[Rfam]
RNA sequence: CCGCCCGUCGCUGCAACCGAUUGGUUGACUAAUAGAACGGUUCUGGAGAGGCACCGUAUCAAUCCUUCUGGAAUGUUCGGAGUAUCGAAAUUCUGUGAUAUCUGUCAACUAGAGGAUGCAGAAGUCGUAACAAGGUUGCUGUAGGUGAACCUGCAGAAGGAUCAA
Numbered sequence: 001c002c003g004c005c006c007g008u009c010g011c012u013g014c015a016a017c018c019g020a021u022u023g024g025u026u027g028a029c030u031a032a033u034a035g036a037a038c039g040g041u042u043c044u045g046g047a048g049a050g051g052c053a054c055c056g057u058a059u060c061a062a063u064c065c066u067u068c069u070g071g072a073a074u075g076u077u078c079g080g081a082g083u084a085u086c087g088a089a090a091u092u093c094u095g096u097g098a099u100a101u102c103u104g105u106c107a108a109c110u111a112g113a114g115g116a117u118g119c120a121g122a123a124g125u126c127g128u129a130a131c132a133a134g135g136u137u138g139c140u141g142u143a144g145g146u147g148a149a150c151c152u153g154c155a156g157a158a159g160g161a162u163c164a165a
Stems, first nucleotide, its partner, number of pairs: 001134001003131001006127002009124001011121005017115002021111001023110007032101003037096004044090001048086002051083002054080003058076001062074002065071001136159002139156007